A member of the RNA family "DUF3800-III RNA", 113 nucleotides long. The sequence is in the family's curated seed alignment. Pairs were carried over by alignment from the consensus structure, which is taken from published work.

RNA sequence: GAACGGUAUCGUAAUACCUGAUGACUUUGGUCGCCCGUGGCGUCCUAGCCGUUUCUGAAAUGAAACGGGAACAAGAAAUCAGACUGAAAUCCGAGCUCAGGUUGAGCCGUUCA
Numbered sequence: 001g002a003a004c005g006g007u008a009u010c011g012u013a014a015u016a017c018c019u020g021a022u023g024a025c026u027u028u029g030g031u032c033g034c035c036c037g038u039g040g041c042g043u044c045c046u047a048g049c050c051g052u053u054u055c056u057g058a059a060a061u062g063a064a065a066c067g068g069g070a071a072c073a074a075g076a077a078a079u080c081a082g083a084c085u086g087a088a089a090u091c092c093g094a095g096c097u098c099a100g101g102u103u104g105a106g107c108c109g110u111u112c113a
Base pairs, nucleotide, nucleotide: 001112002111003110004109005108006107009105010104011103017101018100019099020098021097025095026094027093032042033041034040035039049068050067051066052065053064054063055062